The family of this 141-nucleotide sequence from Bacillus sp. OK048 is "SAM riboswitch aptamer (S box leader)".
[Rfam]
RNA sequence: CUCUUAUCCUGAGCUGGUGGAGGGACAGGCCCUAUGAAACCCAGCAACCUGCUUCAUGAGAACAGAAACCCGUAUCAUCAAUUCUAUUCUCGAUUGCAAAGGUGCUAAUCUGACGCAAGGCCCCGCCUUGAACGAUAAGAG
Numbered sequence: 001c002u003c004u005u006a007u008c009c010u011g012a013g014c015u016g017g018u019g020g021a022g023g024g025a026c027a028g029g030c031c032c033u034a035u036g037a038a039a040c041c042c043a044g045c046a047a048c049c050u051g052c053u054u055c056a057u058g059a060g061a062a063c064a065g066a067a068a069c070c071c072g073u074a075u076c077a078u079c080a081a082u083u084c085u086a087u088u089c090u091c092g093a094u095u096g097c098a099a100a101g102g103u104g105c106u107a108a109u110c111u112g113a114c115g116c117a118a119g120g121c122c123c124c125g126c127c128u129u130g131a132a133c134g135a136u137a138a139g140a141g
Base pairs, nucleotide, nucleotide: 001141002140003139004138005137006136007135008134013042016041017040018039022032023031024030026115029111043106044105045104046103048102049101050098051097052096116130117129118128119127120126121125